RNA sequence: AAAGCAGGCUGCAAUUGCAGUGCUUCCUGCAGUGGGAGCAUUGCCAUUUUCCUGCUGAGAGCAACUCUGUUAAAACUGUCUGUGGUUUCACCCCUACUGUGGUGAAAACGCUCGUUCUUAACAUGGACAGCA
Numbered sequence: 001a002a003a004g005c006a007g008g009c010u011g012c013a014a015u016u017g018c019a020g021u022g023c024u025u026c027c028u029g030c031a032g033u034g035g036g037a038g039c040a041u042u043g044c045c046a047u048u049u050u051c052c053u054g055c056u057g058a059g060a061g062c063a064a065c066u067c068u069g070u071u072a073a074a075a076c077u078g079u080c081u082g083u084g085g086u087u088u089c090a091c092c093c094c095u096a097c098u099g100u101g102g103u104g105a106a107a108a109c110g111c112u113c114g115u116u117c118u119u120a121a122c123a124u125g126g127a128c129a130g131c132a
Base pairs, nucleotide, nucleotide: 003056004055005054006053007052008051018043019042020041021040022039023038024037025036026035065126066125068123069122070121071120072119073118075116083110084109086107087106088105089104090103091102092101094099
A member of the RNA family "Small nucleolar RNA SNORA69" from Furnarius figulus, 132 nucleotides long. Rfam classes the family as an H/ACA-box small nucleolar RNA. NCBI's taxonomy places the organism under Eukaryota, Eumetazoa, Deuterostomia, Teleostomi, Furnarius. Rfam 15.1 lists 808 matches to the family in 584 species.